This 108-nucleotide RNA sequence from Clostridium magnum belongs to the Rfam family "PyrR binding site". This family represents the PyrR binding site and terminator structure. This RNA structure is found upstream of a variety of genes involved in pyrimidine biosynthesis and transport. The alignment also includes a portion of the antiterminator structure. The match comes from Rfam's covariance-model search (59 bits).
RNA sequence: GUAACCUUUAAAUUGGUCCUGUGAGGCCGGGAAGGUAGCAAGAAUAUGUCGUUCCUGUUGUAAGUUUUAGUAUAUUCAUGCCUUCCUUUAGGGGAAGGCAUUUUUUAU
Numbered sequence: 001g002u003a004a005c006c007u008u009u010a011a012a013u014u015g016g017u018c019c020u021g022u023g024a025g026g027c028c029g030g031g032a033a034g035g036u037a038g039c040a041a042g043a044a045u046a047u048g049u050c051g052u053u054c055c056u057g058u059u060g061u062a063a064g065u066u067u068u069a070g071u072a073u074a075u076u077c078a079u080g081c082c083u084u085c086c087u088u089u090a091g092g093g094g095a096a097g098g099c100a101u102u103u104u105u106u107a108u
Stems, first nucleotide, its partner, number of pairs: 004036006013030006041073001043071001045069002048066001050064001052062001054060001078101010
For this family Rfam cites "Molecular recognition of pyr mRNA by the Bacillus subtilis attenuation regulatory protein PyrR" (Bonner et al., Nucleic Acids Res, 2001).